[Rfam]
RNA sequence: GUCGGUCUUCGGUAGUGGCCUGUCGGGCAAGUGUCCGGCCGGCUUCGAUCGAUGGCCGCC
Numbered sequence: 001g002u003c004g005g006u007c008u009u010c011g012g013u014a015g016u017g018g019c020c021u022g023u024c025g026g027g028c029a030a031g032u033g034u035c036c037g038g039c040c041g042g043c044u045u046c047g048a049u050c051g052a053u054g055g056c057c058g059c060c
Base pairs, nucleotide, nucleotide: 001060003058004057005056006055007054009052010051011050012049013048017044018043019042020041022039023038024037025036026035027034028033
The record is a 60-nucleotide sequence from Rhodococcus sp. 1168, which matches "Actino-pnp RNA" in Rfam. A search with the family's covariance model found it, with a score of 53 bits.